[Rfam]
Source information: The record is a 67-nucleotide sequence from Laodelphax striatellus, which matches "Small nucleolar RNA SNORD2" in Rfam. The family's consensus secondary structure was predicted with WAR. A search with the family's covariance model found it, with a score of 38 bits. Its family is annotated with RNA processing and nucleolus in the Gene Ontology. Lineage of the source: Eukaryota > Metazoa > Eumetazoa > Hemiptera > Laodelphax.

RNA sequence: AGUUGAAAUGAUGUUUACAUCUUUCGGGUCUGAGUACAUUUGAUGACUACCUUUCAACUGAUCAACU
Numbered sequence: 001a002g003u004u005g006a007a008a009u010g011a012u013g014u015u016u017a018c019a020u021c022u023u024u025c026g027g028g029u030c031u032g033a034g035u036a037c038a039u040u041u042g043a044u045g046a047c048u049a050c051c052u053u054u055c056a057a058c059u060g061a062u063c064a065a066c067u
Stems, first nucleotide, its partner, number of pairs: 001067006